[Rfam]
RNA sequence: UGUAAAAAGAAAAAUGAAAAUGUGCACUGUCGCUUUUGGUGUUUAGAAAUAGAUGUGGCUACACUGAUACAGGUUAAGCUUCCAUCACAGCACCUUAAUGCAGUAGUGACAAUGAGGCCUGAAACAUGU
Numbered sequence: 001u002g003u004a005a006a007a008a009g010a011a012a013a014a015u016g017a018a019a020a021u022g023u024g025c026a027c028u029g030u031c032g033c034u035u036u037u038g039g040u041g042u043u044u045a046g047a048a049a050u051a052g053a054u055g056u057g058g059c060u061a062c063a064c065u066g067a068u069a070c071a072g073g074u075u076a077a078g079c080u081u082c083c084a085u086c087a088c089a090g091c092a093c094c095u096u097a098a099u100g101c102a103g104u105a106g107u108g109a110c111a112a113u114g115a116g117g118c119c120u121g122a123a124a125c126a127u128g129u
Stems, first nucleotide, its partner, number of pairs: 001055003021045002024042004070121004083108003087104002
Shown here is a 129-nucleotide RNA sequence from Erinaceus europaeus, a member of the family "Small nucleolar RNA SNORA1". Pairs were carried over by alignment from the consensus structure, which was predicted with PFOLD. The match comes from Rfam's covariance-model search (79 bits). Rfam links the family to the GO terms RNA processing and nucleolus. Rfam 15.1 lists 1,282 matches to the family in 515 species. From the family's description: ACA1 is a member of the H/ACA class of snoRNA that guide the sites of modification of uridines to pseudouridines.